Rfam assigns this 151-nucleotide RNA from Pelistega europaea to the family "Manganese Mn2+ riboswitch aptamer (yybP-ykoY)". It scores 76 bits against the family's covariance model. This RNA was originally discovered in E. coli during a large scale screen and was named SraF. The family was later found to exist upstream of related families of protein genes in many bacteria, including the the yybP and ykoK genes in B. subtilis. The specific functions of these proteins are unknown, but this structured RNA element may be involved in their genetic regulation as a riboswitch. On this family, see Barrick et al., Proc Natl Acad Sci U S A 2004: "New RNA motifs suggest an expanded scope for riboswitches in bacterial genetic control". Taxonomically the source falls in Pelistega (Bacteria, Pseudomonadota, Burkholderiales, Alcaligenaceae).

Nucleotides: 151
Base pairs, nucleotide, nucleotide: 026037027036028035039080040079041078042077043076044075045074046073047072048071056070057069058068059067060066081151082150083149084148085147086146
Number, partner (000 for none) and nucleotide at each position: 001000a002000c003000u004000a005000c006000u007000u008000u009000c010000a011000u012000u013000g014000g015000g016000g017000a018000g019000u020000a021000g022000u023000c024000u025000c026037u027036u028035c029000u030000u031000u032000g033000c034000u035028g036027a037026a038000g039080g040079u041078u042077u043076a044075c045074g046073u047072c048071a049000a050000c051000a052000u053000a054000c055000u056070u057069g058068a059067c060066u061000c062000u063000c064000u065000c066060a067059g068058u069057c070056a071048u072047g073046g074045c075044g076043u077042a078041a079040a080039c081151g082150g083149u084148g085147c086146a087000u088000g089000g090000a091000u092000g093000u094000u095000c096000a097000g098000g099000a100000c101000a102000a103000g104000u105000a106000g107000u108000u109000u110000u111000u112000c113000c114000a115000u116000a117000u118000a119000c120000u121000a122000c123000g124000c125000u126000g127000u128000a129000a130000u131000u132000u133000a134000a135000a136000u137000c138000g139000u140000a141000a142000u143000u144000a145000c146086u147085g148084c149083a150082c151081u